Record summary
Rfam assigns this 70-nucleotide RNA from Trichechus manatus to the family "Small nucleolar RNA SNORD30". The match comes from Rfam's covariance-model search (89 bits). The source organism's lineage runs through Eukaryota, Gnathostomata, Teleostomi, Amniota and Trichechus manatus.

[Rfam]
RNA sequence: CUGUAUGAUGACGUACAUGGAAUCUCGUUCGGCUGAUGACUUGCUGCUGAGACAUGGAAAUCUGAUUUUU
Numbered sequence: 001c002u003g004u005a006u007g008a009u010g011a012c013g014u015a016c017a018u019g020g021a022a023u024c025u026c027g028u029u030c031g032g033c034u035g036a037u038g039a040c041u042u043g044c045u046g047c048u049g050a051g052a053c054a055u056g057g058a059a060a061u062c063u064g065a066u067u068u069u070u
Base pairs, nucleotide, nucleotide: 023052024051025050026049027048030046031045032044033043